[Rfam]
RNA: Small nucleolar RNA snR60/Z15/Z230/Z193/J17
RNA sequence: GUGGGUCAAAUGAUGACUAGUAGCAUAGUUCACAUGAAGUUAUUUGUGAUUAUAAAACUACUUUAGUCUUUCGCUCCUAUCUGAUGACUCUC
Number, nucleotide and partner (000 for none) at each position: 001g000002u000003g000004g089005g088006u087007c086008a085009a000010a000011u000012g000013a000014u000015g000016a000017c000018u000019a000020g000021u000022a000023g000024c000025a000026u000027a000028g000029u000030u000031c000032a000033c000034a000035u000036g000037a000038a000039g000040u000041u000042a000043u000044u000045u000046g000047u000048g000049a000050u000051u000052a000053u000054a000055a000056a000057a000058c000059u000060a000061c000062u000063u000064u000065a000066g000067u000068c000069u000070u000071u000072c000073g000074c000075u000076c000077c000078u000079a000080u000081c000082u000083g000084a000085u008086g007087a006088c005089u004090c000091u000092c000